[Rfam]
RNA: Manganese Mn2+ riboswitch aptamer (yybP-ykoY)
RNA sequence: CGCGCCGUCAUUGGGGAGUAGCCGCUCUUCACAUCGAAGAGGCUUGCGUCAACACGCGUGGCCCGCAGGCCAUGGCGCAAGCGGUUGUCGGCGCAGCUGACCUCUUGGACCGGAUCAAGGCCUGCAAUUU
Numbered sequence: 001c002g003c004g005c006c007g008u009c010a011u012u013g014g015g016g017a018g019u020a021g022c023c024g025c026u027c028u029u030c031a032c033a034u035c036g037a038a039g040a041g042g043c044u045u046g047c048g049u050c051a052a053c054a055c056g057c058g059u060g061g062c063c064c065g066c067a068g069g070c071c072a073u074g075g076c077g078c079a080a081g082c083g084g085u086u087g088u089c090g091g092c093g094c095a096g097c098u099g100a101c102c103u104c105u106u107g108g109a110c111c112g113g114a115u116c117a118a119g120g121c122c123u124g125c126a127a128u129u130u
Stems, first nucleotide, its partner, number of pairs: 026040003042082010059072005083129006